Shown here is a 73-nucleotide RNA sequence from Beta vulgaris, a member of the family "small nucleolar RNA snoR117". For this family Rfam cites "Mining small RNA sequencing data: a new approach to identify small nucleolar RNAs in Arabidopsis" (Chen and Wu, Nucleic Acids Res, 2009). By type it is a C/D-box small nucleolar RNA. Taxonomically the source falls in Beta vulgaris (Eukaryota, Embryophyta, Tracheophyta, eudicotyledons).

RNA sequence: GGCCUAGGAUUUUUAUUUAAUUGUCCGUACCAUCUGAUAUUUGAUGAGUAAAUUUGCAAUUUUUCUGAGGCCA
Numbered sequence: 001g002g003c004c005u006a007g008g009a010u011u012u013u014u015a016u017u018u019a020a021u022u023g024u025c026c027g028u029a030c031c032a033u034c035u036g037a038u039a040u041u042u043g044a045u046g047a048g049u050a051a052a053u054u055u056g057c058a059a060u061u062u063u064u065c066u067g068a069g070g071c072c073a
Stems, first nucleotide, its partner, number of pairs: 001072004